[Rfam]
RNA sequence: UAUUGAUAUAGGCAAACUAUUUGAAAGAAUAGGACGCAAAGCAUAGGGUCUAAAGUAUUAGAAUUAUUUCUUUUACCUUAGCCGCCACG
Numbered sequence: 001u002a003u004u005g006a007u008a009u010a011g012g013c014a015a016a017c018u019a020u021u022u023g024a025a026a027g028a029a030u031a032g033g034a035c036g037c038a039a040a041g042c043a044u045a046g047g048g049u050c051u052a053a054a055g056u057a058u059u060a061g062a063a064u065u066a067u068u069u070c071u072u073u074u075a076c077c078u079u080a081g082c083c084g085c086c087a088c089g
Stems, first nucleotide, its partner, number of pairs: 012037002017032006042089001046086002048082002055076003
c-di-GMP-I riboswitch aptamer: an 89-nucleotide RNA from Salipaludibacillus neizhouensis.
The base pairs follow the family's consensus structure, which is taken from published work.